[Rfam]
RNA sequence: UCCUUAUCCAGAGAGGUGGAGGGACUGGCCCAAUGAAACCCGGCAACCAACAUGUAGAAAUACAUGGUAAGGUGCCAAUUCCUGCAGAACAAUCAUGUUCUGAAAGAUGAGGG
Number, nucleotide and partner (000 for none) at each position: 001u113002c112003c111004u110005u109006a108007u107008c106009c000010a000011g000012a000013g041014a000015g040016g039017u038018g000019g000020a000021g031022g030023g029024a000025c084026u000027g082028g081029c023030c022031c021032a000033a000034u000035g000036a000037a000038a017039c016040c015041c013042g076043g075044c074045a073046a000047c072048c071049a068050a000051c066052a065053u064054g063055u000056a000057g000058a000059a000060a000061u000062a000063c054064a053065u052066g051067g000068u049069a000070a000071g048072g047073u045074g044075c043076c042077a000078a000079u000080u105081c028082c027083u000084g025085c102086a101087g100088a099089a098090c097091a000092a000093u000094c000095a000096u000097g090098u089099u088100c087101u086102g085103a000104a000105a080106g008107a007108u006109g005110a004111g003112g002113g001
Rfam assigns this 113-nucleotide sequence from Tepidibacillus sp. HK-1 to the family "SAM riboswitch aptamer (S box leader)".
A search with the family's covariance model found it, with a score of 97 bits.
NCBI's taxonomy places the organism under Bacteria, Bacillati, Bacillota, Caryophanales, Tepidibacillus.